[Rfam]
RNA sequence: ACGGUUUGCCGAGGACCUCCUCCUCCCAAUCCUCGGCGAAAAGAGGCCUGCACCUCCUCCCAAAUAGCAGGCUUCGAACUCACGGCGCUCGUCGGCACCUCCUCCCGCCGAUGAGCGCCGACA
Numbered sequence: 001a002c003g004g005u006u007u008g009c010c011g012a013g014g015a016c017c018u019c020c021u022c023c024u025c026c027c028a029a030u031c032c033u034c035g036g037c038g039a040a041a042a043g044a045g046g047c048c049u050g051c052a053c054c055u056c057c058u059c060c061c062a063a064a065u066a067g068c069a070g071g072c073u074u075c076g077a078a079c080u081c082a083c084g085g086c087g088c089u090c091g092u093c094g095g096c097a098c099c100u101c102c103u104c105c106c107g108c109c110g111a112u113g114a115g116c117g118c119c120g121a122c123a
Base pairs, nucleotide, nucleotide: 007038008037009036011034012033013032014031015030043075044074045073046072047071048070049069050068051067085118086117087116088115089114090113091112092111093110094109095108